Shown here is a 209-nucleotide RNA from Heliorestis acidaminivorans, a member of the family "Lysine riboswitch aptamer". The source organism's lineage runs through Bacteria, Bacillota, Clostridia, Eubacteriales and Heliorestis.

[Rfam]
RNA sequence: AGGUGGGGUAGAGGCGCGGUUGAUCAAGAGUAGAUUCAAGAAGGUCCAAAGGCAUGGACGAUGCAUUGAAUGGAAAGGGCUCACCGCCGAAGCUUAGACGAUGGCACUUGUUUAAGCUGGGUCUGUAAUGAAUAAUUGCAGGACUGUCACCACGGAGCUUUUCCCACCUUUUUUAAGGCGCUCUAAAGUGGUGGAGCACUAUCUUACCA
Numbered sequence: 001a002g003g004u005g006g007g008g009u010a011g012a013g014g015c016g017c018g019g020u021u022g023a024u025c026a027a028g029a030g031u032a033g034a035u036u037c038a039a040g041a042a043g044g045u046c047c048a049a050a051g052g053c054a055u056g057g058a059c060g061a062u063g064c065a066u067u068g069a070a071u072g073g074a075a076a077g078g079g080c081u082c083a084c085c086g087c088c089g090a091a092g093c094u095u096a097g098a099c100g101a102u103g104g105c106a107c108u109u110g111u112u113u114a115a116g117c118u119g120g121g122u123c124u125g126u127a128a129u130g131a132a133u134a135a136u137u138g139c140a141g142g143a144c145u146g147u148c149a150c151c152a153c154g155g156a157g158c159u160u161u162u163c164c165c166a167c168c169u170u171u172u173u174u175a176a177g178g179c180g181c182u183c184u185a186a187a188g189u190g191g192u193g194g195a196g197c198a199c200u201a202u203c204u205u206a207c208c209a
Base pairs, nucleotide, nucleotide: 006204007203008202009201010200011199016087017086018085019084020083022082023081025079034071035070036069037068038067039066091118092117093116094115095114096113097112098111099110100109101108119145120144122142123141124140125139126138127137128136129135147194148193149192150191151190152189153188